[Rfam]
RNA sequence: UUAGGUAGUUUCAUGUUGUUGGGAUGGGCUUUUCAUGGGCUCGGCAACAAGAAACUGCCUUAAUUACGUC
Numbered sequence: 001u002u003a004g005g006u007a008g009u010u011u012c013a014u015g016u017u018g019u020u021g022g023g024a025u026g027g028g029c030u031u032u033u034c035a036u037g038g039g040c041u042c043g044g045c046a047a048c049a050a051g052a053a054a055c056u057g058c059c060u061u062a063a064u065u066a067c068g069u070c
Stems, first nucleotide, its partner, number of pairs: 001062001003060009014049010

Shown here is a 70-nucleotide RNA sequence from Sylvia borin, a member of the family "mir-196 microRNA precursor family". Rfam 15.1 lists 1,813 matches to the family in 642 species. Pairs were carried over by alignment from the consensus structure, which was predicted with PFOLD. Rfam links the family to the GO terms gene silencing by miRNA and RISC complex. For this family Rfam cites "New microRNAs from mouse and human" (Lagos-Quintana et al., RNA, 2003).